[Rfam]
A member of the RNA family "c-di-GMP-I riboswitch aptamer" from Steroidobacter denitrificans, 86 nucleotides long.
RNA sequence: AUUGGUUACGGGCAAACCCGUCGAAAGACGGGGACGCAAAGCUUCCGGUCUACGGGAUUCCAUCCUACGACAGCGGGGUUGCCGCA
Numbered sequence: 001a002u003u004g005g006u007u008a009c010g011g012g013c014a015a016a017c018c019c020g021u022c023g024a025a026a027g028a029c030g031g032g033g034a035c036g037c038a039a040a041g042c043u044u045c046c047g048g049u050c051u052a053c054g055g056g057a058u059u060c061c062a063u064c065c066u067a068c069g070a071c072a073g074c075g076g077g078g079u080u081g082c083c084g085c086a
Stems, first nucleotide, its partner, number of pairs: 012037002017032006040080004045076003048071003055065004

Its family is annotated with cyclic-di-GMP binding in the Gene Ontology.
The base pairs follow the family's consensus structure, which is taken from published work.